Rfam assigns this 105-nucleotide RNA from Streptococcus urinalis to the family "trpB ncRNA motif". The match comes from Rfam's covariance-model search (75 bits). trpB ncRNA motif was reported as a strong cis regulatory motif candidate, with potential to be a cis regulatory riboswitch type, it have been identified in Firmicutes and Fusobacteria. Taxonomically the source falls in Streptococcus urinalis (Bacteria, Bacillota, Bacilli, Lactobacillales). The family's consensus secondary structure is taken from published work. It is annotated as a cis-regulatory element.

RNA sequence: UGCAUAGAUACGACUUUUAGAGUACAUCUAAAAAGUAUCUAUGCGCAGUUUCUUAGUUAAUAAAAAAAGGCGCGUAGUAGAAAUACUAGGUGCUUUUUUGUAUGA
Numbered sequence: 001u002g003c004a005u006a007g008a009u010a011c012g013a014c015u016u017u018u019a020g021a022g023u024a025c026a027u028c029u030a031a032a033a034a035g036u037a038u039c040u041a042u043g044c045g046c047a048g049u050u051u052c053u054u055a056g057u058u059a060a061u062a063a064a065a066a067a068a069g070g071c072g073c074g075u076a077g078u079a080g081a082a083a084u085a086c087u088a089g090g091u092g093c094u095u096u097u098u099u100g101u102a103u104g105a
Base pairs, nucleotide, nucleotide: 001045002044003043004042005041006040007039008038009037010036011035015033016032017031018030019029020028069094070093071092072091073090075088076087077086078085079084